[Rfam]
RNA: BsrC
Organism: Bacillus cereus
RNA sequence: UAUACCUAAAACAAUGAAAGCCCUACCUCUCUUUCAUCCUUACGGCUCCUCGUCCGUGCCAGUGUGAAUCAGGAUUGCAAAAAUCA
Numbered sequence: 001u002a003u004a005c006c007u008a009a010a011a012c013a014a015u016g017a018a019a020g021c022c023c024u025a026c027c028u029c030u031c032u033u034u035c036a037u038c039c040u041u042a043c044g045g046c047u048c049c050u051c052g053u054c055c056g057u058g059c060c061a062g063u064g065u066g067a068a069u070c071a072g073g074a075u076u077g078c079a080a081a082a083a084u085c086a
Base pairs, nucleotide, nucleotide: 034067035066036065039062040061041058042057043056044055045054047052